[Rfam]
RNA sequence: UUUUAUCUCAAGUUUGCUUACGCAAACUUGAUUAUUUACGUGUGCGCGUAAUGCGCGCACGACUAAAAACUUUUUCGGAAACUUAUGUUUCCUGCAAAAGUUUUUAUAGGA
Numbered sequence: 001u002u003u004u005a006u007c008u009c010a011a012g013u014u015u016g017c018u019u020a021c022g023c024a025a026a027c028u029u030g031a032u033u034a035u036u037u038a039c040g041u042g043u044g045c046g047c048g049u050a051a052u053g054c055g056c057g058c059a060c061g062a063c064u065a066a067a068a069a070c071u072u073u074u075u076c077g078g079a080a081a082c083u084u085a086u087g088u089u090u091c092c093u094g095c096a097a098a099a100g101u102u103u104u105u106a107u108a109g110g111a
Stems, first nucleotide, its partner, number of pairs: 010029008042060008065105010077092006
Dot-bracket structure: .........((((((((....))))))))............((((((((...))))))))....((((((((((..((((((....))))))...))))))))))......
A member of the RNA family "TD-1 RNA" from Treponema vincentii, 111 nucleotides long. A search with the family's covariance model found it, with a score of 71 bits. Pairs were carried over by alignment from the consensus structure, which is taken from published work. Rfam 15.1 lists 147 matches to the family in 9 species.